[Rfam]
RNA sequence: AGGAGGACUGAGAAGGUUUGGCAGCUAAAAAUGGUGCUGCUGUAACUGGUUACAACCUCCAAAAUUAAAACUCAAAUGCAGCAAUUUAACCUGAUCAUACCAUCAGAGUACGUGCUGUGUAUGUGUACAGUUA
Numbered sequence: 001a002g003g004a005g006g007a008c009u010g011a012g013a014a015g016g017u018u019u020g021g022c023a024g025c026u027a028a029a030a031a032u033g034g035u036g037c038u039g040c041u042g043u044a045a046c047u048g049g050u051u052a053c054a055a056c057c058u059c060c061a062a063a064a065u066u067a068a069a070a071c072u073c074a075a076a077u078g079c080a081g082c083a084a085u086u087u088a089a090c091c092u093g094a095u096c097a098u099a100c101c102a103u104c105a106g107a108g109u110a111c112g113u114g115c116u117g118u119g120u121a122u123g124u125g126u127a128c129a130g131u132u133a
Base pairs, nucleotide, nucleotide: 002060003059004058005057006056015047016046017045018044019042020041021040022039023038024037025036077125078124079123083120086117092112093111096108098107

Shown here is a 133-nucleotide RNA sequence from Megalops atlanticus, a member of the family "Small nucleolar RNA SNORA47". Rfam classes the family as an H/ACA-box small nucleolar RNA. Rfam 15.1 lists 733 matches to the family in 635 species. Pairs were carried over by alignment from the consensus structure, which was predicted with WAR.